[Rfam]
Background
Small nucleolar RNA SNORD103/SNORD85: a 78-nucleotide RNA sequence from Lepisosteus oculatus. For this family Rfam cites "RNomics: an experimental approach that identifies 201 candidates for novel, small, non-messenger RNAs in mouse" (Huttenhofer et al., EMBO J, 2001). The source organism's lineage runs through Eukaryota, Teleostomi, Semionotiformes, Lepisosteidae and Lepisosteus.

RNA sequence: CCUGGCAGUGAUGACACACUUGCCCUCACUGAGAGCAUGACUCGAUAAUGACAUCUUUAUGUACUCUACUGAGUCAGG
Dot-bracket structure: ((((((..................................................................))))))
Numbered sequence: 001c002c003u004g005g006c007a008g009u010g011a012u013g014a015c016a017c018a019c020u021u022g023c024c025c026u027c028a029c030u031g032a033g034a035g036c037a038u039g040a041c042u043c044g045a046u047a048a049u050g051a052c053a054u055c056u057u058u059a060u061g062u063a064c065u066c067u068a069c070u071g072a073g074u075c076a077g078g
Stems, first nucleotide, its partner, number of pairs: 001078006
The family has 41 seed sequences and 1,349 matches in Rfam 15.1.